RNA sequence: AUCGUGAUGCUGGGGUGUUUCGGGCGUCGUACCGGAACUGAGAGGAUACCCAUCGAACCUGACCCAGGUAAUUCUGGCGCAGGGAGACGUCACCGGACCCGCC
Dot-bracket structure: .....((((.((((.((((((((........))))))).......)..)))).....((((..((((......))))..))))....))))............

The family of this 103-nucleotide sequence from Nisaea acidiphila is "TPP riboswitch aptamer (THI element)". About the family: Vitamin B(1) in its active form thiamin pyrophosphate (TPP) is an essential coenzyme that is synthesised by coupling of pyrimidine and thiazole moieties in bacteria.